[Rfam]
RNA sequence: AGAUUUAUAAAAGCGCCAGAACUAUGAUAGUUCAUAGUAGACGAGGAGAAGGGUGAUCGAAAAUCGGCGGAUACCUUCUAGUGCUCAUCUGCACUAAAAAAAUCUUAUACAAAGCAACUGGGUGACUGGUUGUACAAAGGUAAGAUUAAGAUGUAGG
Numbered sequence: 001a002g003a004u005u006u007a008u009a010a011a012a013g014c015g016c017c018a019g020a021a022c023u024a025u026g027a028u029a030g031u032u033c034a035u036a037g038u039a040g041a042c043g044a045g046g047a048g049a050a051g052g053g054u055g056a057u058c059g060a061a062a063a064u065c066g067g068c069g070g071a072u073a074c075c076u077u078c079u080a081g082u083g084c085u086c087a088u089c090u091g092c093a094c095u096a097a098a099a100a101a102a103u104c105u106u107a108u109a110c111a112a113a114g115c116a117a118c119u120g121g122g123u124g125a126c127u128g129g130u131u132g133u134a135c136a137a138a139g140g141u142a143a144g145a146u147u148a149a150g151a152u153g154u155a156g157g
Stems, first nucleotide, its partner, number of pairs: 021038007048078005057067004079096006101147007115132007
The record is a 157-nucleotide sequence from Haloplasma contractile, which matches "glmS glucosamine-6-phosphate activated ribozyme aptamer" in Rfam. Its family is annotated with catalytic activity and regulation of gene expression in the Gene Ontology. For this family Rfam cites "Evidence for preorganization of the glmS ribozyme ligand binding pocket" (Hampel and Tinsley, Biochemistry, 2006). A search with the family's covariance model found it, with a score of 112 bits. It is annotated as a riboswitch.